[Rfam]
RNA: sul1 RNA
Organism: Mycoplana dimorpha
RNA sequence: CAUGGACCCGGUGAGACUCCGGGCGGCUCCUCUGGCCGCCAAUCCGCCAGACGACA
Numbered sequence: 001c002a003u004g005g006a007c008c009c010g011g012u013g014a015g016a017c018u019c020c021g022g023g024c025g026g027c028u029c030c031u032c033u034g035g036c037c038g039c040c041a042a043u044c045c046g047c048c049a050g051a052c053g054a055c056a
Base pairs, nucleotide, nucleotide: 007023008022009021010020011019031051032050033049034048035047036046